A member of the RNA family "c-di-GMP-I riboswitch aptamer" from Ornithinibacillus caprae, 98 nucleotides long.
[Rfam]
RNA sequence: AUUUGUAAAAGGCAAACUACUUGAAAGGGUAGGACGCAAAGUCAAGGGUCUACGGUUAUCAUACAUGAUUGAUAUACUACGAUCGCCUGAUUACCAAU
Numbered sequence: 001a002u003u004u005g006u007a008a009a010a011g012g013c014a015a016a017c018u019a020c021u022u023g024a025a026a027g028g029g030u031a032g033g034a035c036g037c038a039a040a041g042u043c044a045a046g047g048g049u050c051u052a053c054g055g056u057u058a059u060c061a062u063a064c065a066u067g068a069u070u071g072a073u074a075u076a077c078u079a080c081g082a083u084c085g086c087c088u089g090a091u092u093a094c095c096a097a098u
Stems, first nucleotide, its partner, number of pairs: 012037002017032006040092004045088003048083003055077002